[Rfam]
RNA sequence: GCCGCAGACCGCCUUAUCGUCCUGAGAAAUUGGGGAGGAAAGUCCGGACACCACAGAGUAGCAUAUUGGGUAACACCCAACCGUUGAAAGACGAGGACAAGUGCAACAGAAAGCAAGUACAGUUCGGCUGUAGUGAAACCAGGUAAACUCUAUGCGGUGAAAUUCCAAGUAUAUCGACAUUUAAGGGUUACUCGCCCGUUGUCGAAGGGUAGGAAGCUUGAAUCAAUGAGUAAUUGUUGGUCUAGAUAAAUGAUAAGGAUUCACCACAUCGGUGAAUACAGAAUCCGGCUUAUAGGUCUGCUUUUUUU
Numbered sequence: 001g002c003c004g005c006a007g008a009c010c011g012c013c014u015u016a017u018c019g020u021c022c023u024g025a026g027a028a029a030u031u032g033g034g035g036a037g038g039a040a041a042g043u044c045c046g047g048a049c050a051c052c053a054c055a056g057a058g059u060a061g062c063a064u065a066u067u068g069g070g071u072a073a074c075a076c077c078c079a080a081c082c083g084u085u086g087a088a089a090g091a092c093g094a095g096g097a098c099a100a101g102u103g104c105a106a107c108a109g110a111a112a113g114c115a116a117g118u119a120c121a122g123u124u125c126g127g128c129u130g131u132a133g134u135g136a137a138a139c140c141a142g143g144u145a146a147a148c149u150c151u152a153u154g155c156g157g158u159g160a161a162a163u164u165c166c167a168a169g170u171a172u173a174u175c176g177a178c179a180u181u182u183a184a185g186g187g188u189u190a191c192u193c194g195c196c197c198g199u200u201g202u203c204g205a206a207g208g209g210u211a212g213g214a215a216g217c218u219u220g221a222a223u224c225a226a227u228g229a230g231u232a233a234u235u236g237u238u239g240g241u242c243u244a245g246a247u248a249a250a251u252g253a254u255a256a257g258g259a260u261u262c263a264c265c266a267c268a269u270c271g272g273u274g275a276a277u278a279c280a281g282a283a284u285c286c287g288g289c290u291u292a293u294a295g296g297u298c299u300g301c302u303u304u305u306u307u308u
Base pairs, nucleotide, nucleotide: 001304004301005300006299007298008297009296010295011293012258013257014256015255016254017253018252020035021034022033023032024031025030040291041290042289044288045287046286047285048284049159050158051157052156056193057192058191059190061155062154063153064152065151066080067079068078069077070076081095082093083092084091085090096150097149101148102147103144104143118132119131120130121129122128123127163215164214165213166212174205175204176203177202178201185197186196187195188194222241223240224239225238226237227236228235229234
Rfam assigns this 308-nucleotide RNA sequence from Flavobacterium sangjuense to the family "Bacterial RNase P class A".
The match comes from Rfam's covariance-model search (197 bits).
Clan: RNaseP clan.
Ribonuclease P (RNase P) is a ubiquitous endoribonuclease, found in archaea, bacteria and eukarya as well as chloroplasts and mitochondria. Its best characterised activity is the generation of mature 5'-ends of tRNAs by cleaving the 5'-leader elements of precursor-tRNAs. Cellular RNase Ps are ribonucleoproteins. RNA from bacterial RNase Ps retains its catalytic activity in the absence of the protein subunit, i.e. it is a ribozyme. Isolated eukaryotic and archaeal RNase P RNA has not been shown to retain its catalytic function, but is still essential for the catalytic activity of the holoenzyme. Although the archaeal and eukaryotic holoenzyme s have a much greater protein content than the bacterial ones, the RNA cores from all the three lineages are homologous -- helices corresponding to P1, P2, P3, P4, and P10/11 are common to all cellular RNase P RNAs. Yet, there is considerable sequence variation, particularly among the eukaryotic RNAs. Identified in Yersinia as Ysr151/RnpB.
Pairs were carried over by alignment from the consensus structure, which is taken from published work.
NCBI's taxonomy places the organism under Bacteria, Pseudomonadati, Bacteroidota, Flavobacteriaceae, Flavobacterium.
By type it is a ribozyme.
Its family is annotated with tRNA processing, dimeric ribonuclease P complex and ribonuclease P activity in the Gene Ontology.